Background:
Shown here is a 46-nucleotide RNA sequence from Peromyscus maniculatus, a member of the family "Histone 3' UTR stem-loop". It is annotated as a cis-regulatory element.
[Rfam]
RNA sequence: CCAAAGGCUCUUUUCAGAGCCACCACCUCCUCACUUGAGAGGCUGU
Numbered sequence: 001c002c003a004a005a006g007g008c009u010c011u012u013u014u015c016a017g018a019g020c021c022a023c024c025a026c027c028u029c030c031u032c033a034c035u036u037g038a039g040a041g042g043c044u045g046u
Stems, first nucleotide, its partner, number of pairs: 006021006
Dot-bracket structure: .....((((((....)))))).........................